[Rfam]
Nucleotides: 184
Stems, first nucleotide, its partner, number of pairs: 006179004010174002016082003020078002024074001032067007086116003089111006117143002121139007145168007
Number, partner (000 for none) and nucleotide at each position: 001000u002000c003000a004000a005000a006179u007178c008177g009176a010174a011173g012000a013000g014000g015000a016082g017081c018080a019000a020078c021077c022000a023000a024074c025000a026000u027000u028000a029000g030000u031000a032067g033066c034065g035064g036063u037062u038061a039000g040000g041000a042000g043000u044000u045000u046000u047000u048000a049000c050000c051000g052000g053000a054000c055000a056000g057000u058000g059000a060000a061038u062037a063036a064035u065034c066033g067032u068000g069000a070000a071000a072000g073000g074024g075000g076000c077021g078020g079000c080018u081017g082016c083000c084000g085000a086116a087115g088114c089111g090110g091109u092108a093107a094106g095000g096000a097000u098000g099000g100000u101000a102000a103000u104000a105000a106094c107093u108092u109091g110090c111089u112000u113000g114088g115087c116086u117143g118142g119000g120000g121139c122138g123137u124136a125135a126134c127133u128000a129000a130000a131000a132000a133127a134126g135125u136124u137123a138122c139121g140000g141000a142118c143117u144000g145168u146167c147166g148165c149164a150163a151162g152000a153000c154000a155000a156000g157000a158000a159000g160000a161000g162151c163150u164149u165148g166147c167146g168145g169000u170000g171000c172000g173011c174010u175000a176009u177008c178007g179006a180000c181000u182000a183000u184000c

Record summary:
This 184-nucleotide RNA sequence from Limosilactobacillus coleohominis belongs to the Rfam family "Lysine riboswitch aptamer". The source organism's lineage runs through Bacteria, Bacillati, Bacillota, Lactobacillales and Limosilactobacillus coleohominis. A reference for the family is Sudarsan et al. (2003), "An mRNA structure in bacteria that controls gene expression by binding lysine", Genes Dev. Riboswitches are metabolite binding domains within certain messenger RNAs that serve as precision sensors for their corresponding targets. A search with the family's covariance model found it, with a score of 93 bits.